Rfam assigns this 116-nucleotide RNA sequence from Galbula dea to the family "Small nucleolar RNA SNORD90".

[Rfam]
RNA sequence: CUAGUUCCCUUCUUUGUGUCUUAUGAUGAAGCUUCAUAGGGCAGAUUCUGAGCUGAGAAAUGAAAUUUCUCUCCACUGAUUCUCUCUGUAUGCCAUCUGAAGACACUGUGGAUCGU
Numbered sequence: 001c002u003a004g005u006u007c008c009c010u011u012c013u014u015u016g017u018g019u020c021u022u023a024u025g026a027u028g029a030a031g032c033u034u035c036a037u038a039g040g041g042c043a044g045a046u047u048c049u050g051a052g053c054u055g056a057g058a059a060a061u062g063a064a065a066u067u068u069c070u071c072u073c074c075a076c077u078g079a080u081u082c083u084c085u086c087u088g089u090a091u092g093c094c095a096u097c098u099g100a101a102g103a104c105a106c107u108g109u110g111g112a113u114c115g116u
Base pairs, nucleotide, nucleotide: 014108016106017105018104019103020102021101031096035092036091037090039085040084041083044080047079048078050076052074055071056070057069058068059067
Taxonomically the source falls in Galbula (Eukaryota, Bilateria, Deuterostomia, Telluraves).
snoRNA HBII-295 belongs to the family of C/D snoRNAs. It is the human orthologue of the mouse MBII-295 and has no identified RNA target.
Gene Ontology terms of the family: RNA processing and nucleolus.